This 48-nucleotide sequence belongs to the Rfam family "SAM/SAH riboswitch aptamer". It is one of the family's seed sequences. Rfam links the family to the GO terms regulation of gene expression and S-adenosylmethionine metabolic process. The literature on the family includes a 2019 paper in Nucleic Acids Res by Weickhmann et al., "The structure of the SAM/SAH-binding riboswitch".

[Rfam]
RNA sequence: UGAAACUUAUAACGGCUACCUGAAGUAAGUUUUUUUAUAAACGGAGCA
Number, nucleotide and partner (000 for none) at each position: 001u000002g000003a000004a031005a030006c029007u028008u027009a026010u025011a000012a000013c022014g021015g047016c046017u045018a000019c044020c043021u014022g013023a000024a000025g010026u009027a008028a007029g006030u005031u004032u000033u000034u000035u000036u000037a000038u000039a000040a000041a000042c000043g020044g019045a017046g016047c015048a000